RNA: gntR-DTE RNA
RNA sequence: CGGGUGAUGCCGUCGGCGGCCCCUUUGAGGCGUGCUGGCUCUGGAGAACAGCCCUGGCGAUCAUCCCUCCAUUCCUGGAGGUCAACGCCCUGGCUGCCACCUGGUACGUGCCGCUCUGCUGGCGUCAGAGCAGUGACGAUGACGCACCGA
Numbered sequence: 001c002g003g004g005u006g007a008u009g010c011c012g013u014c015g016g017c018g019g020c021c022c023c024u025u026u027g028a029g030g031c032g033u034g035c036u037g038g039c040u041c042u043g044g045a046g047a048a049c050a051g052c053c054c055u056g057g058c059g060a061u062c063a064u065c066c067c068u069c070c071a072u073u074c075c076u077g078g079a080g081g082u083c084a085a086c087g088c089c090c091u092g093g094c095u096g097c098c099a100c101c102u103g104g105u106a107c108g109u110g111c112c113g114c115u116c117u118g119c120u121g122g123c124g125u126c127a128g129a130g131c132a133g134u135g136a137c138g139a140u141g142a143c144g145c146a147c148c149g150a
Base pairs, nucleotide, nucleotide: 015115016114017113018112019111020110030109031108032107033106034105035104036103037102038101042099043098044097049096050095051094052093053092